sRNA-Xcc1: an 89-nucleotide RNA from Stenotrophomonas sp. BIIR7.
Taxonomically the source falls in Stenotrophomonas (Bacteria, Pseudomonadota, Gammaproteobacteria, Lysobacteraceae).
The literature on the family includes a 2011 paper in RNA Biol by Chen et al., "sRNA-Xcc1, an integron-encoded transposon- and plasmid-transferred trans-acting sRNA, is under the positive control of the key virulence regulators HrpG and HrpX of Xanthomonas campestris pathovar campestris".
It scores 64 bits against the family's covariance model.
It is annotated as a small RNA.

RNA sequence: GUCGGGAGGGCGGCUAAUACAAGACCCUCCACGGGGGAAUACGCCCGCCGAUCGGUUGCUUUCGGUUUUUGACCUCCCGACGCCCUCGC
Numbered sequence: 001g002u003c004g005g006g007a008g009g010g011c012g013g014c015u016a017a018u019a020c021a022a023g024a025c026c027c028u029c030c031a032c033g034g035g036g037g038a039a040u041a042c043g044c045c046c047g048c049c050g051a052u053c054g055g056u057u058g059c060u061u062u063c064g065g066u067u068u069u070u071g072a073c074c075u076c077c078c079g080a081c082g083c084c085c086u087c088g089c
Base pairs, nucleotide, nucleotide: 001081002080003079004078005077006076007075008074009073012045013044014043015041016040025036026035027034047066048065049064050063051062